[Rfam]
Nucleotides: 106
Stems, first nucleotide, its partner, number of pairs: 003103005013093003017089006024082004029077005
Number, partner (000 for none) and nucleotide at each position: 001000c002000u003103u004102u005101g006100u007099a008000c009000u010000c011000u012000u013093c014092c015091a016000c017089a018088g019087c020086u021085u022084u023000c024082u025081u026080g027079a028000a029077c030076u031075g032074c033073g034000a035000a036000u037000u038000a039000u040000c041000g042000u043000g044000u045000u046000a047000g048000a049000a050000a051000u052000u053000u054000g055000a056000a057000u058000a059000a060000a061000a062000a063000a064000u065000g066000u067000a068000g069000a070000a071000a072000u073033u074032g075031c076030a077029g078000u079027u080026c081025a082024a083000u084022a085021a086020a087019g088018c089017u090000g091015u092014g093013g094000g095000a096000a097000a098000a099007u100006a101005u102004g103003g104000a105000g106000a